[Rfam]
RNA sequence: UGUAGAAAAGGUGGAAAAAUUCGACGCGUCCACACUCAAUUGAAAAAUUGAUAAGAGAUGAGGGAGAAAGCGUCGCCCUCUUUCUAUG
Numbered sequence: 001u002g003u004a005g006a007a008a009a010g011g012u013g014g015a016a017a018a019a020u021u022c023g024a025c026g027c028g029u030c031c032a033c034a035c036u037c038a039a040u041u042g043a044a045a046a047a048u049u050g051a052u053a054a055g056a057g058a059u060g061a062g063g064g065a066g067a068a069a070g071c072g073u074c075g076c077c078c079u080c081u082u083u084c085u086a087u088g
Stems, first nucleotide, its partner, number of pairs: 001088008011033005023074005035055001036051006060080005